[Rfam]
RNA: Pyrobaculum sRNA 205
RNA sequence: UAGGCCUUGAGCACCAUACAGGGGACAGUACGAAUUAGCUCGGCGAAAUUCCCCGACCACA
Numbered sequence: 001u002a003g004g005c006c007u008u009g010a011g012c013a014c015c016a017u018a019c020a021g022g023g024g025a026c027a028g029u030a031c032g033a034a035u036u037a038g039c040u041c042g043g044c045g046a047a048a049u050u051c052c053c054c055g056a057c058c059a060c061a
Base pairs, nucleotide, nucleotide: 004044005043006042009041010040011039012038017030018029019028021026